The record is a 145-nucleotide sequence from Actinopolymorpha pittospori, which matches "c-di-AMP riboswitch aptamer (ydaO/yuaA leader)" in Rfam. The family has 106 seed sequences and 7,607 matches in Rfam 15.1. The organism belongs to Actinopolymorpha, within Bacteria. Rfam links the family to the GO terms cyclic-di-AMP binding and regulation of gene expression.

[Rfam]
RNA sequence: CCACAGUUAUCGCUGGGCGGAGACGGAGGACCCAAUCAACAGCCCCACCGCGAGUGGGGCUCCUGGGGUGAAGCCGCAUCCGCGGCCGGGCACUUCCUCUCGCCCGAACCCGACAGCUAACUCCGCGGGCGACGAGAGGGAACGG
Numbered sequence: 001c002c003a004c005a006g007u008u009a010u011c012g013c014u015g016g017g018c019g020g021a022g023a024c025g026g027a028g029g030a031c032c033c034a035a036u037c038a039a040c041a042g043c044c045c046c047a048c049c050g051c052g053a054g055u056g057g058g059g060c061u062c063c064u065g066g067g068g069u070g071a072a073g074c075c076g077c078a079u080c081c082g083c084g085g086c087c088g089g090g091c092a093c094u095u096c097c098u099c100u101c102g103c104c105c106g107a108a109c110c111c112g113a114c115a116g117c118u119a120a121c122u123c124c125g126c127g128g129g130c131g132a133c134g135a136g137a138g139g140g141a142a143c144g145g
Base pairs, nucleotide, nucleotide: 001129002128007021008020024125025124026123027122028121033065034064066111067110068109074085075084076083077082088105089104090103091102